[Rfam]
RNA sequence: CAGAAAUGGGAGUUCCUUCCAGCCCAGAGCAGCCCAUGAUCAUCCUCUUACCAGGUGCUUUGGACUGAAGGGAGCUCCUAAUUCUU
Numbered sequence: 001c002a003g004a005a006a007u008g009g010g011a012g013u014u015c016c017u018u019c020c021a022g023c024c025c026a027g028a029g030c031a032g033c034c035c036a037u038g039a040u041c042a043u044c045c046u047c048u049u050a051c052c053a054g055g056u057g058c059u060u061u062g063g064a065c066u067g068a069a070g071g072g073a074g075c076u077c078c079u080a081a082u083u084c085u086u
Stems, first nucleotide, its partner, number of pairs: 007080012021066002024063005